Record summary
The family of this 428-nucleotide sequence from Bradyrhizobium sp. BTAi1 is "Bacterial RNase P class A". The base pairs follow the family's consensus structure, which is taken from published work. The family's RNA type in Rfam is ribozyme.

RNA sequence: UCAGUCGGCCGGACGGCCGCUCCGGCAGGUGCCGAAAGGCCGCCGGGGAGGAAAGUCCGGGCUCCAUCGACAUGCGGUGCCGGAUAACGUCCGGCGGGGGCGACCCCAGGGACAGUGCCACAGAGAACGAACCGCUUCCUCCCGAAAGGGAGGCGAGUAAGGGUGAAAAGGUGCGGUAAGAGCGCACCGCGGGGCCGGCAACGGAACCGGCAUGGUAAACCCCACCGGGAGCAAAACCGAAUAGGGACGGCCACGCGGAGACAAUCGCCUUUGGCGAUGACGUCCGCGGGAGCGAUGUCAGGCUCGCCGUCCGGGUAGGUUGCCCGAGGUCUCGCGCAAGCGCGAUCCCAGAGGAAUGGCCGUCACGUAUCGUCAUGCGCAAGCAUCACGGUGCCCUACAGAACCCGGCUUACAGGCCGGCUGAUAUG
Numbered sequence: 001u002c003a004g005u006c007g008g009c010c011g012g013a014c015g016g017c018c019g020c021u022c023c024g025g026c027a028g029g030u031g032c033c034g035a036a037a038g039g040c041c042g043c044c045g046g047g048g049a050g051g052a053a054a055g056u057c058c059g060g061g062c063u064c065c066a067u068c069g070a071c072a073u074g075c076g077g078u079g080c081c082g083g084a085u086a087a088c089g090u091c092c093g094g095c096g097g098g099g100g101c102g103a104c105c106c107c108a109g110g111g112a113c114a115g116u117g118c119c120a121c122a123g124a125g126a127a128c129g130a131a132c133c134g135c136u137u138c139c140u141c142c143c144g145a146a147a148g149g150g151a152g153g154c155g156a157g158u159a160a161g162g163g164u165g166a167a168a169a170g171g172u173g174c175g176g177u178a179a180g181a182g183c184g185c186a187c188c189g190c191g192g193g194g195c196c197g198g199c200a201a202c203g204g205a206a207c208c209g210g211c212a213u214g215g216u217a218a219a220c221c222c223c224a225c226c227g228g229g230a231g232c233a234a235a236a237c238c239g240a241a242u243a244g245g246g247a248c249g250g251c252c253a254c255g256c257g258g259a260g261a262c263a264a265u266c267g268c269c270u271u272u273g274g275c276g277a278u279g280a281c282g283u284c285c286g287c288g289g290g291a292g293c294g295a296u297g298u299c300a301g302g303c304u305c306g307c308c309g310u311c312c313g314g315g316u317a318g319g320u321u322g323c324c325c326g327a328g329g330u331c332u333c334g335c336g337c338a339a340g341c342g343c344g345a346u347c348c349c350a351g352a353g354g355a356a357u358g359g360c361c362g363u364c365a366c367g368u369a370u371c372g373u374c375a376u377g378c379g380c381a382a383g384c385a386u387c388a389c390g391g392u393g394c395c396c397u398a399c400a401g402a403a404c405c406c407g408g409c410u411u412a413c414a415g416g417c418c419g420g421c422u423g424a425u426a427u428g
Base pairs, nucleotide, nucleotide: 001424002423003422004421005420006419007418008417009416010415011413012364013363014362015361016360017359018358020048021047022046023045024044025043026042028040053411054410055409057408058407059406060405061404062231063230064229065228075227076226077225078224079223080094081093082092083091084090095109096107097106098105099104110222111221115220116219117216118215119214132162133161134158135157136156138153139152140151141150142149143148170188171187172186173185174184175183189211190209191208192207195204196203197202235321236320237319238318245312246311247310248309249308250307290305291304292303293302328347329346330345331344333342334341335340